[Rfam]
Description
This 33-nucleotide sequence from Flavobacterium faecale belongs to the Rfam family "DUF805b RNA". Clan: DUF805 clan. The source organism's lineage runs through Bacteria, Pseudomonadati, Bacteroidota, Flavobacteriaceae and Flavobacterium. By type it is a cis-regulatory element.
RNA sequence: GGGGAGGUAUCCGAAAAUCCAAAAGAGUAGGUA
Dot-bracket structure: ..(((.....[[.....))).........]]..